Notes: S15-Halobacteria ribosomal protein leader: an 84-nucleotide RNA from Halomarina oriensis. Taxonomically the source falls in Halomarina (Archaea, Methanobacteriati, Halobacteria, Natronomonadaceae). On this family, see Eckert and Weinberg, BMC Microbiol 2020: "Discovery of 20 novel ribosomal leader candidates in bacteria and archaea". Its Rfam clan is "Ribosomal Protein S15 Leader clan". Rfam classes the family as a cis-regulatory leader.
RNA sequence: ACGGGAACAGCACAGCCGCAUAUCCGACAUCGCCGCGAACGCCCGCGCUGGGUACUCUUUCGCGGCUUGGGAGUGUGGACGUGC
Numbered sequence: 001a002c003g004g005g006a007a008c009a010g011c012a013c014a015g016c017c018g019c020a021u022a023u024c025c026g027a028c029a030u031c032g033c034c035g036c037g038a039a040c041g042c043c044c045g046c047g048c049u050g051g052g053u054a055c056u057c058u059u060u061c062g063c064g065g066c067u068u069g070g071g072a073g074u075g076u077g078g079a080c081g082u083g084c
Base pairs, nucleotide, nucleotide: 010084011083012082013081016078017077018076019075020074021073024071025070032066033065034064035063036062037061038060